[Rfam]
RNA sequence: UAAAUUUGAAAGUUCUACGCUCAUAUAAUUUCUUAAUAUGGAAGAAAGUCUCUACUAGCUGCCGAUAAACAGCUAUCUAUGUGCAAAAACAAUUCUAUU
Numbered sequence: 001u002a003a004a005u006u007u008g009a010a011a012g013u014u015c016u017a018c019g020c021u022c023a024u025a026u027a028a029u030u031u032c033u034u035a036a037u038a039u040g041g042a043a044g045a046a047a048g049u050c051u052c053u054a055c056u057a058g059c060u061g062c063c064g065a066u067a068a069a070c071a072g073c074u075a076u077c078u079a080u081g082u083g084c085a086a087a088a089a090c091a092a093u094u095c096u097a098u099u
Stems, first nucleotide, its partner, number of pairs: 019084002022081004029047006056075006
RNA: Purine riboswitch aptamer
Organism: Propionigenium maris